Rfam assigns this 383-nucleotide RNA sequence from Pontibacillus litoralis to the family "Bacterial RNase P class B". A search with the family's covariance model found it, with a score of 314 bits. Pairs were carried over by alignment from the consensus structure, which is taken from published work. It is annotated as a ribozyme. NCBI's taxonomy places the organism under Bacteria, Bacillati, Bacillota, Bacilli, Pontibacillus litoralis.
RNA sequence: AUGCUGAGGUAAUCGCUGUAUGCAUGUUCAUACAGAGGAAAGUCCAUGCUCGCACAAGCUGAGAUGCUUGUAGUGUUCGUGCUUGAUGAAACCAUAAGUCAAGGUAGCAUACAUGGCUAACGGCAGGGAAUUGAUCUACGUUCUUGAUGAAUAGGAUCAAAUGACCUUGAAAGUGCCACAGUGACGUAGUUCUACUGGAAACGGUAGAAGUGGAACGAGGUAAACCCCGCGAGCGAGCAACCCAAAAUUAGGUAGGGGCACUUUUCUGAGGGAAUUCAACCAAUAGGAAGAGACAAGAGGUUACUUGUAGAUAGAUGAUUACCACUGGAGUACGAGGUUGACCACCAUUUGCAGUACAAAGGUACAGAACAUGGCUUACCAAG
Dot-bracket structure: ...((..(((((((.((((((........))))))....[[[.[[[[[(((((((((((......)))))).....(((((((((((..........))))))(((((.......)))).)((.(((.....((((...(((.......)))..))))......))).....(((((............((((((((....)))))))).........)))..))))))))))))))...(((...........)))...(((((((..................)))))))(((((......)))))........))))))).((...((((....................))))...)).......]]]]]]]]....))